[Rfam]
RNA sequence: CUUUCUGCGCAGGUUGGGAUUGGUAGCAAUGCUGUGUGUUUUGAAGGUAUUGCACUUGUCCCGGCCUGUAAAGGAUUG
Numbered sequence: 001c002u003u004u005c006u007g008c009g010c011a012g013g014u015u016g017g018g019a020u021u022g023g024u025a026g027c028a029a030u031g032c033u034g035u036g037u038g039u040u041u042u043g044a045a046g047g048u049a050u051u052g053c054a055c056u057u058g059u060c061c062c063g064g065c066c067u068g069u070a071a072a073g074g075a076u077u078g
Stems, first nucleotide, its partner, number of pairs: 004074003009069006016062005022056003026053008